A member of the RNA family "MIR7502 microRNA precursor family" from Gossypium trilobum, 145 nucleotides long. The organism belongs to Gossypium, within Eukaryota. The base pairs follow the family's consensus structure, which was predicted with RNAalifold.
RNA sequence: UAUUAAAAAUUCCAUUCGAUUCUACUGUUAAAAACUGGCAUAGCUAACAGAAUAACUAAAAAGUUACACAUGGCGUGCCAUAUGUACCUCAUUCUGAUAUAUUGGGAUCAAUUUUUAACAGUAGAAAUAGAUGAAAUUUUUAACA
Numbered sequence: 001u002a003u004u005a006a007a008a009a010u011u012c013c014a015u016u017c018g019a020u021u022c023u024a025c026u027g028u029u030a031a032a033a034a035c036u037g038g039c040a041u042a043g044c045u046a047a048c049a050g051a052a053u054a055a056c057u058a059a060a061a062a063g064u065u066a067c068a069c070a071u072g073g074c075g076u077g078c079c080a081u082a083u084g085u086a087c088c089u090c091a092u093u094c095u096g097a098u099a100u101a102u103u104g105g106g107a108u109c110a111a112u113u114u115u116u117a118a119c120a121g122u123a124g125a126a127a128u129a130g131a132u133g134a135a136a137u138u139u140u141u142a143a144c145a
Stems, first nucleotide, its partner, number of pairs: 003143009013133004018128001020126007028118006